[Rfam]
A member of the RNA family "PreQ1-II (pre queuosine) riboswitch aptamer" from Streptococcus intermedius, 110 nucleotides long. Rfam's curators write: preQ1-II riboswitch was first reported for Weinberg et al. 2007 it was recognised in Streptococcaceae and Lactococcus families in 5' untranslated regions of genes of a membrane protein classified as COG4708 or DUF988. Meyers et al. 2008 confirm that preQ1-II recognise the queuosine (Q) precursor pre-queuosine 1 (preQ1). Gene Ontology term of the family: queuosine biosynthetic process. The match comes from Rfam's covariance-model search (93 bits).
RNA sequence: UGUGCUAUACUUGAAAGGCUGUAUUAAUGUUAUCAAUACAGUCCUUGGCGCUUAGUUUCCUUUCGCCAAGCAUAUUAUACGCGGUUAUAGCCGCCAAAGGAGAAAAAAUG
Numbered sequence: 001u002g003u004g005c006u007a008u009a010c011u012u013g014a015a016a017g018g019c020u021g022u023a024u025u026a027a028u029g030u031u032a033u034c035a036a037u038a039c040a041g042u043c044c045u046u047g048g049c050g051c052u053u054a055g056u057u058u059c060c061u062u063u064c065g066c067c068a069a070g071c072a073u074a075u076u077a078u079a080c081g082c083g084g085u086u087a088u089a090g091c092c093g094c095c096a097a098a099g100g101a102g103a104a105a106a107a108a109u110g
Base pairs, nucleotide, nucleotide: 018042019041020040021039022038023037024036025035044070045069046068047067048066049065050064057102058101059100060099061098062097081094082093083092084091